The family of this 124-nucleotide sequence from Paraburkholderia sediminicola is "Burkholderia sRNA Bp1_Cand684_SIPHT". On this family, see Khoo et al., BMC Genomics 2012: "Computational discovery and RT-PCR validation of novel Burkholderia conserved and Burkholderia pseudomallei unique sRNAs". Taxonomically the source falls in Paraburkholderia (Bacteria, Pseudomonadota, Betaproteobacteria, Burkholderiaceae).
[Rfam]
RNA sequence: AGAAAAGUAGGUGCCGCCCCGCACAGGGGCAACGCUAAUAGACCAAUAACAAAUCAAGGAAAGGCCAACACCGCAGAAGUCCGGACACAACAUCAAUUAGAAGCCGCAGCAGCCUGAUCAGCCA
Numbered sequence: 001a002g003a004a005a006a007g008u009a010g011g012u013g014c015c016g017c018c019c020c021g022c023a024c025a026g027g028g029g030c031a032a033c034g035c036u037a038a039u040a041g042a043c044c045a046a047u048a049a050c051a052a053a054u055c056a057a058g059g060a061a062a063g064g065c066c067a068a069c070a071c072c073g074c075a076g077a078a079g080u081c082c083g084g085a086c087a088c089a090a091c092a093u094c095a096a097u098u099a100g101a102a103g104c105c106g107c108a109g110c111a112g113c114c115u116g117a118u119c120a121g122c123c124a
Base pairs, nucleotide, nucleotide: 011088012087013086016030017029018028019027020026058082059081060080107116108115109114